[Rfam]
RNA sequence: GGAUGCUCUGAAGACCUGCUCGCUAGGCCACGCACGGAGGACACUGGCUCCUCAUGGGCCCCGCGCCCGCCUAGGGAAAAGUCCCCGGACUGCUGGCAGAGAGUGGCAGGCGCUGCUGGCGCCCUCGCCCGCCCCCACCUCACACAUUCCCCACGGAGAUGCCCCCAGGCCGAGUGGGUGAGCACAGGCGGGCUCUCCAUGCAGCCACAGACACACAGGUAGUGCGCAGGCACACCAACAGAACAGGGCUCACUCUCAGGGUAUC
Numbered sequence: 001g002g003a004u005g006c007u008c009u010g011a012a013g014a015c016c017u018g019c020u021c022g023c024u025a026g027g028c029c030a031c032g033c034a035c036g037g038a039g040g041a042c043a044c045u046g047g048c049u050c051c052u053c054a055u056g057g058g059c060c061c062c063g064c065g066c067c068c069g070c071c072u073a074g075g076g077a078a079a080a081g082u083c084c085c086c087g088g089a090c091u092g093c094u095g096g097c098a099g100a101g102a103g104u105g106g107c108a109g110g111c112g113c114u115g116c117u118g119g120c121g122c123c124c125u126c127g128c129c130c131g132c133c134c135c136c137a138c139c140u141c142a143c144a145c146a147u148u149c150c151c152c153a154c155g156g157a158g159a160u161g162c163c164c165c166c167a168g169g170c171c172g173a174g175u176g177g178g179u180g181a182g183c184a185c186a187g188g189c190g191g192g193c194u195c196u197c198c199a200u201g202c203a204g205c206c207a208c209a210g211a212c213a214c215a216c217a218g219g220u221a222g223u224g225c226g227c228a229g230g231c232a233c234a235c236c237a238a239c240a241g242a243a244c245a246g247g248g249c250u251c252a253c254u255c256u257c258a259g260g261g262u263a264u265c
Stems, first nucleotide, its partner, number of pairs: 002265010014220005023074006037053005080250002083248003095107001097105002109123005126192001128190001132188002139182004151177004161170003222235003226231001
This 265-nucleotide RNA sequence from Phoenicopterus ruber belongs to the Rfam family "RNase MRP". Rfam links the family to the GO terms ribonuclease MRP activity, ribonuclease MRP complex and rRNA processing. RNase MRP is an enzymatically active ribonucleoprotein with two distinct roles in eukaryotes. By type it is a ribozyme. Lineage of the source: Eukaryota > Opisthokonta > Tetrapoda > Archosauria > Phoenicopterus ruber.